[Rfam]
RNA sequence: AAUAUACAUCAAGAGCGAGAUUAAGUUCUCCUCCAACCUGCCAACUCCGGCAAGGUGGAAAAAUGAUGAGGUUUAUCAACAAAUAAAGGAGUUAAA
Numbered sequence: 001a002a003u004a005u006a007c008a009u010c011a012a013g014a015g016c017g018a019g020a021u022u023a024a025g026u027u028c029u030c031c032u033c034c035a036a037c038c039u040g041c042c043a044a045c046u047c048c049g050g051c052a053a054g055g056u057g058g059a060a061a062a063a064u065g066a067u068g069a070g071g072u073u074u075a076u077c078a079a080c081a082a083a084u085a086a087a088g089g090a091g092u093u094a095a096a
Base pairs, nucleotide, nucleotide: 007068008067009066010065015031017030018029019028020027032059033058034057037055038054039053040051041050042049044092045091046090047089048088071080072079073078
Rfam assigns this 96-nucleotide RNA to the family "SAM-I/IV (S-adenosyl methionine) riboswitch aptamer". On this family, see Trausch et al., PNAS 2014: "Structural basis for diversity in the SAM clan of riboswitches". The family's consensus secondary structure is taken from published work.